The family of this 65-nucleotide sequence from Cloeon dipterum is "mir-14 microRNA precursor family". Rfam links the family to the GO terms miRNA-mediated post-transcriptional gene silencing and RISC complex. It scores 53 bits against the family's covariance model. The source organism's lineage runs through Eukaryota, Ecdysozoa, Hexapoda, Pisciforma and Cloeon.
[Rfam]
RNA sequence: CGUAGGAGGGGGACUUAGGCUUGCCCUAGUUUGCAAUUGUGGCCAGUCUUUUUCUCUCUCCUAUG
Dot-bracket structure: ((((((((.((((...(((((.(((.(...........).))).)))))...)))).))))))))